[Rfam]
A member of the RNA family "mir-3 microRNA precursor family" from Drosophila virilis, 65 nucleotides long. The literature on the family includes a 2003 paper in Dev Cell by Aravin et al., "The small RNA profile during Drosophila melanogaster development". Pairs were carried over by alignment from the consensus structure, which was predicted with RNAalifold. The family is grouped with related families in Rfam's "mir-3 clan". The sequence is in the family's curated seed alignment.

RNA sequence: UGGGAUGCAUUUUGUGCGGUUAUGUCUGCCUCCAAAACCCAUCACUGGGCAAAGUGUGUCUCAAA
Numbered sequence: 001u002g003g004g005a006u007g008c009a010u011u012u013u014g015u016g017c018g019g020u021u022a023u024g025u026c027u028g029c030c031u032c033c034a035a036a037a038c039c040c041a042u043c044a045c046u047g048g049g050c051a052a053a054g055u056g057u058g059u060c061u062c063a064a065a
Base pairs, nucleotide, nucleotide: 001063002062003061004060005059006058007057008056009055010054013051014050015049017047018046019045020044